[Rfam]
RNA sequence: UCCCCUAUCCGUUUAGGGUGUCCCUACUGUAGCAUGCAUUCCUGGUUAACGGGAAGGUGUGAAGCCUACAGGACAAUGUGGAGAAGAAUAGAACCCUGAUCUAUACAAUCUGCUAGGGAAAAAGCCGCCAUGGAG
Numbered sequence: 001u002c003c004c005c006u007a008u009c010c011g012u013u014u015a016g017g018g019u020g021u022c023c024c025u026a027c028u029g030u031a032g033c034a035u036g037c038a039u040u041c042c043u044g045g046u047u048a049a050c051g052g053g054a055a056g057g058u059g060u061g062a063a064g065c066c067u068a069c070a071g072g073a074c075a076a077u078g079u080g081g082a083g084a085a086g087a088a089u090a091g092a093a094c095c096c097u098g099a100u101c102u103a104u105a106c107a108a109u110c111u112g113c114u115a116g117g118g119a120a121a122a123a124g125c126c127g128c129c130a131u132g133g134a135g
Stems, first nucleotide, its partner, number of pairs: 003018005028070005033061005039055006086101002089098003102124001104122001110117002
Description: Shown here is a 135-nucleotide RNA from Methanosarcina acetivorans, a member of the family "Group II catalytic intron D1-D4-7". On this family, see Bonen and Vogel, Trends Genet 2001: "The ins and outs of group II introns". Rfam describes the family as follows. Group II introns are found in rRNA, tRNA and mRNA of organelles in fungi, plants and protists, and also in mRNA in bacteria. A search with the family's covariance model found it, with a score of 59 bits. NCBI's taxonomy places the organism under Archaea, Methanobacteriati, Methanobacteriota, Methanosarcinales, Methanosarcina acetivorans. Gene Ontology term of the family: Group II intron splicing.